[Rfam]
Source information
Rfam assigns this 75-nucleotide RNA from Thalassarche chlororhynchos to the family "Small nucleolar RNA SNORD26". Clan: SNORD26 clan. Rfam links the family to the GO terms RNA processing and nucleolus. Taxonomically the source falls in Thalassarche (Eukaryota, Teleostomi, Archelosauria, Theropoda). The literature on the family includes a 1996 paper in Nature by Tycowski et al., "A mammalian gene with introns instead of exons generating stable RNA products". It is annotated as a C/D-box small nucleolar RNA. Pairs were carried over by alignment from the consensus structure, which was predicted with PFOLD.
RNA sequence: CCGCGGGGAUGAUCCCACGGAACUCUCUCUUGCUGAGGCACCCGUGGAGAAGCUCUUGGUCACGCUCUGAGUGGC
Numbered sequence: 001c002c003g004c005g006g007g008g009a010u011g012a013u014c015c016c017a018c019g020g021a022a023c024u025c026u027c028u029c030u031u032g033c034u035g036a037g038g039c040a041c042c043c044g045u046g047g048a049g050a051a052g053c054u055c056u057u058g059g060u061c062a063c064g065c066u067c068u069g070a071g072u073g074g075c
Stems, first nucleotide, its partner, number of pairs: 001074004